RNA sequence: CCAUUGCGCCGCUAGGGUUCCGGUCGAAACGAUGUUCCGAUGCUGGUCCGAGAGCAGCAGCCGCGCGGGAGACAUCCGCACGGUACACGGCGGGAUAAAAGCCCGGGAGAG
Dot-bracket structure: .......((.((..((...(((((((.(.......).)))).).)).))....)).)).((((.(((.........))).)))).(.[...(((.......))).)..]..

This 111-nucleotide RNA from Acidiphilium rubrum belongs to the Rfam family "Guanidine-I riboswitch aptamer". On this family, see Barrick et al., Proc Natl Acad Sci U S A 2004: "New RNA motifs suggest an expanded scope for riboswitches in bacterial genetic control". A search with the family's covariance model found it, with a score of 80 bits.